[Rfam]
RNA sequence: UGUCACGAGUGCCAACGUCCAGCCCCGGCUUGUUGGCCGGCAACCCUCCACCGCGAAGGGGUGCCCCGGGUGAGGACACGGCCGCAUCCAGUGGAGGCGGCAAAGCGCGGGCC
Numbered sequence: 001u002g003u004c005a006c007g008a009g010u011g012c013c014a015a016c017g018u019c020c021a022g023c024c025c026c027g028g029c030u031u032g033u034u035g036g037c038c039g040g041c042a043a044c045c046c047u048c049c050a051c052c053g054c055g056a057a058g059g060g061g062u063g064c065c066c067c068g069g070g071u072g073a074g075g076a077c078a079c080g081g082c083c084g085c086a087u088c089c090a091g092u093g094g095a096g097g098c099g100g101c102a103a104a105g106c107g108c109g110g111g112c113c
Base pairs, nucleotide, nucleotide: 001078002077003076004075009038011037012036013035014034015033016032021030022029039065040064041063044061045060046059049055081101082100083099084098085097087095088094089093
Dot-bracket structure: ((((....(.((((((....((......)).)))))))(((..(((..(.....)...))).))).........))))..(((((.(((...))).)))))............
SAM (S-adenosyl methionine) riboswitch aptamer: a 113-nucleotide RNA from Frankia alni.
Lineage of the source: Bacteria > Actinomycetota > Frankiales > Frankiaceae > Frankia alni.